[Rfam]
RNA sequence: CCGAGGGCUUCACCCUCGGCUGUUAUCUUUCGCCCUUUCAGGGCU
Numbered sequence: 001c002c003g004a005g006g007g008c009u010u011c012a013c014c015c016u017c018g019g020c021u022g023u024u025a026u027c028u029u030u031c032g033c034c035c036u037u038u039c040a041g042g043g044c045u
Stems, first nucleotide, its partner, number of pairs: 001019007032044005
Annotation
Shown here is a 45-nucleotide RNA from Flavipsychrobacter stenotrophus, a member of the family "Acido-Lenti-1 RNA". The family's RNA type in Rfam is small RNA.